[Rfam]
This 72-nucleotide RNA sequence belongs to the Rfam family "Small nucleolar RNA SNORD113/SNORD114 family".
The family's RNA type in Rfam is C/D-box small nucleolar RNA.
The imprinted human domain at 14q32 contains two clusters of tandemly repeated small nucleolar RNAs named 14q(I) and 14q(II) snoRNAs. These two clusters are named SNORD113 and SNORD114 respectively in the HGNC approved gene symbol nomenclature. The snoRNAs found in both clusters are clearly related and are represented here by a single family. These snoRNAs are intron encoded and are processed from the tissue-specific non-coding human MEG8 RNA, which lies downstream of the imprinted genes DLK1 and GTL2. snoRNAs 14q(I) and 14q(II) differ from previously identified C/D box snoRNAs in their expression profiles and lack of complementarity to rRNA and snRNA. Homologues of these snoRNAs are found in the imprinted non-coding mouse transcript Rian, and in the rat non-coding Bsr (brain-specific repetitive) RNA.
Its Rfam clan is "SNORD74 clan".
Its family is annotated with RNA processing and nucleolus in the Gene Ontology.

RNA sequence: UGGAUCUAUGAUGACCUCUGGUGCCGUAUGAGUCGGGGAUCAUGAUCACAGGUCUGGGAGUCUGAGGUCCAC
Numbered sequence: 001u002g003g004a005u006c007u008a009u010g011a012u013g014a015c016c017u018c019u020g021g022u023g024c025c026g027u028a029u030g031a032g033u034c035g036g037g038g039a040u041c042a043u044g045a046u047c048a049c050a051g052g053u054c055u056g057g058g059a060g061u062c063u064g065a066g067g068u069c070c071a072c
Base pairs, nucleotide, nucleotide: 002070003069004068005067006066